Streptococcus sRNA SpF59 (ldcC RNA): a 55-nucleotide sequence. The family's RNA type in Rfam is small RNA. The family's consensus secondary structure was predicted with mfold. On this family, see Mann et al., PLoS Pathog 2012: "Control of virulence by small RNAs in Streptococcus pneumoniae".
[Rfam]
RNA sequence: GGACCACUCCUGCGAGGGAGCCUAAGGCCAUACGGACAGCCGGGUCCACUGCCGA
Numbered sequence: 001g002g003a004c005c006a007c008u009c010c011u012g013c014g015a016g017g018g019a020g021c022c023u024a025a026g027g028c029c030a031u032a033c034g035g036a037c038a039g040c041c042g043g044g045u046c047c048a049c050u051g052c053c054g055a
Stems, first nucleotide, its partner, number of pairs: 001047005007020005